The family of this 585-nucleotide part of an RNA from an uncultured bacterium is "Bacterial small subunit ribosomal RNA". Rfam 15.1 lists 42,628 matches to the family in 10,626 species.
[Rfam]
RNA sequence: UGACGGGACCCCGCACAAGCGGCGGAGCAUGCGGCUUAAUUCGAUGAUACCCGUAGAACCUUACCUGGACUUGACAUAUAGGGUCAAGCUAUAGAGAUAUAGUGUGCAUUAGCGCCCUAUACAGGUGGUGCAUGGCUGUCGUCAGCUCGUGUCGUGAGAUGUUGGGUUAAGUCCCGCAACGAGCGCAACCCCUGUCCUAUGUUGCCAGCAUUUAGUUGGGGACUCAUAGGAGACUGCCGGUGAUAAACCGGAGGAAGGUGGGGACGACGUCAAGUCAUCAUGCCCCUUAUGUCCAGGGCUGCACGCAUGCUACAAUGGCAAGUACAACGAGUCGCAAUACCGCGAGGUGGAGCAAAUCUCUUAAAGCUUGUCUCAGUUCGGAUAGGAGUCUGCAACUCGACUCCUUGAAGUUGGAGUCGCUAGUAAUCGCAAAUCAGCAAAGUUGCGGUGAAUACGUUCUCGGGGUUUGUACACACCGCCCGUCAAGUCACGGAAGUCGGCAAUACCCGAAGCCAGUGGUCUAACCCUUUUAGGGAAGAAGCUGUCGAAGGUAGGGUCGGUAACUGGGACUAAGUCGUAACAAGG
Numbered sequence: 001u002g003a004c005g006g007g008a009c010c011c012c013g014c015a016c017a018a019g020c021g022g023c024g025g026a027g028c029a030u031g032c033g034g035c036u037u038a039a040u041u042c043g044a045u046g047a048u049a050c051c052c053g054u055a056g057a058a059c060c061u062u063a064c065c066u067g068g069a070c071u072u073g074a075c076a077u078a079u080a081g082g083g084u085c086a087a088g089c090u091a092u093a094g095a096g097a098u099a100u101a102g103u104g105u106g107c108a109u110u111a112g113c114g115c116c117c118u119a120u121a122c123a124g125g126u127g128g129u130g131c132a133u134g135g136c137u138g139u140c141g142u143c144a145g146c147u148c149g150u151g152u153c154g155u156g157a158g159a160u161g162u163u164g165g166g167u168u169a170a171g172u173c174c175c176g177c178a179a180c181g182a183g184c185g186c187a188a189c190c191c192c193u194g195u196c197c198u199a200u201g202u203u204g205c206c207a208g209c210a211u212u213u214a215g216u217u218g219g220g221g222a223c224u225c226a227u228a229g230g231a232g233a234c235u236g237c238c239g240g241u242g243a244u245a246a247a248c249c250g251g252a253g254g255a256a257g258g259u260g261g262g263g264a265c266g267a268c269g270u271c272a273a274g275u276c277a278u279c280a281u282g283c284c285c286c287u288u289a290u291g292u293c294c295a296g297g298g299c300u301g302c303a304c305g306c307a308u309g310c311u312a313c314a315a316u317g318g319c320a321a322g323u324a325c326a327a328c329g330a331g332u333c334g335c336a337a338u339a340c341c342g343c344g345a346g347g348u349g350g351a352g353c354a355a356a357u358c359u360c361u362u363a364a365a366g367c368u369u370g371u372c373u374c375a376g377u378u379c380g381g382a383u384a385g386g387a388g389u390c391u392g393c394a395a396c397u398c399g400a401c402u403c404c405u406u407g408a409a410g411u412u413g414g415a416g417u418c419g420c421u422a423g424u425a426a427u428c429g430c431a432a433a434u435c436a437g438c439a440a441a442g443u444u445g446c447g448g449u450g451a452a453u454a455c456g457u458u459c460u461c462g463g464g465g466u467u468u469g470u471a472c473a474c475a476c477c478g479c480c481c482g483u484c485a486a487g488u489c490a491c492g493g494a495a496g497u498c499g500g501c502a503a504u505a506c507c508c509g510a511a512g513c514c515a516g517u518g519g520u521c522u523a524a525c526c527c528u529u530u531u532a533g534g535g536a537a538g539a540a541g542c543u544g545u546c547g548a549a550g551g552u553a554g555g556g557u558c559g560g561u562a563a564c565u566g567g568g569a570c571u572a573a574g575u576c577g578u579a580a581c582a583a584g585g
Stems, first nucleotide, its partner, number of pairs: 001473002003470003007467007015457002019420005024313001026311008034302002040055001042053002064297007077121002080118005088103006106113002124286002127284004133280002135275003138271001140269002145184006151160003163176004190263004195231007205220002209218002234254002237251005317372007329360003334353002339348003379410001384405007426449007476584001478581001481577002486571004491566003496561006504553004512546001514544004520539003525535002
The family's consensus secondary structure is taken from published work.